[Rfam]
RNA sequence: UGGAGAAGGGGAGCACGUGCAGGAUUGAAGCAAUUCAAAAACUUGCACGUGCCCUGCUUCUCCAAC
Numbered sequence: 001u002g003g004a005g006a007a008g009g010g011g012a013g014c015a016c017g018u019g020c021a022g023g024a025u026u027g028a029a030g031c032a033a034u035u036c037a038a039a040a041a042c043u044u045g046c047a048c049g050u051g052c053c054c055u056g057c058u059u060c061u062c063c064a065a066c
Stems, first nucleotide, its partner, number of pairs: 001064008010055002013052011028035002